Ribosomal protein L20 leader: a 133-nucleotide sequence from Periweissella fabalis. This family is a putative r-protein leader autoregulatory structure found in B. subtilis and other low-GC Gram-positive bacteria. It is located in the 5' untranslated regions of mRNAs encoding initiation factor 3 followed by ribosomal proteins L35 and L20 (infC-rpmI-rplT). On this family, see Zengel and Lindahl, Prog Nucleic Acid Res Mol Biol 1994: "Diverse mechanisms for regulating ribosomal protein synthesis in Escherichia coli". It scores 65 bits against the family's covariance model.
[Rfam]
Nucleotides: 133
Base pairs, nucleotide, nucleotide: 011026012025013024014023015022016021028054029053030052034049035048036047037046038045095120096119097118098117099116100115101114102113103112104111
Number, partner (000 for none) and nucleotide at each position: 001000a002000a003000a004000a005000c006000a007000a008000a009000g010000u011026a012025g013024g014023a015022g016021c017000a018000c019000c020000c021016g022015c023014u024013u025012c026011u027000c028054g029053c030052c031000u032000c033000a034049g035048u036047g037046a038045u039000a040000a041000u042000u043000g044000u045038g046037u047036u048035g049034c050000u051000a052030g053029g054028c055000u056000u057000g058000a059000u060000a061000u062000u063000c064000u065000u066000u067000a068000a069000a070000a071000c072000c073000a074000u075000g076000a077000u078000g079000a080000a081000u082000g083000a084000u085000u086000u087000u088000a089000u090000a091000a092000g093000c094000g095120g096119g097118u098117u099116u100115g101114c102113g103112u104111a105000a106000u107000u108000u109000u110000u111104u112103a113102c114101g115100c116099g117098a118097a119096c120095c121000c122000u123000c124000u125000u126000u127000u128000g129000u130000u131000u132000u133000c